[Rfam]
RNA sequence: AGGUAAUGUCUACUACACCUUUAUCAUUGUAGGCACUCGGCUAUGCUGUGGGCUUGUCUGCCUUAGACGUGAAUCGUCGAGGGUGUAGCGUGAGGACGGGUUAAAUGCCCU
Numbered sequence: 001a002g003g004u005a006a007u008g009u010c011u012a013c014u015a016c017a018c019c020u021u022u023a024u025c026a027u028u029g030u031a032g033g034c035a036c037u038c039g040g041c042u043a044u045g046c047u048g049u050g051g052g053c054u055u056g057u058c059u060g061c062c063u064u065a066g067a068c069g070u071g072a073a074u075c076g077u078c079g080a081g082g083g084u085g086u087a088g089c090g091u092g093a094g095g096a097c098g099g100g101u102u103a104a105a106u107g108c109c110c111u
Stems, first nucleotide, its partner, number of pairs: 001020004007035007036094004040089008050063004066078004098110004

A member of the RNA family "epsC RNA" from Cohnella lubricantis, 111 nucleotides long. It scores 99 bits against the family's covariance model. Taxonomically the source falls in Cohnella (Bacteria, Bacillota, Caryophanales, Paenibacillaceae). The family's consensus secondary structure is taken from published work.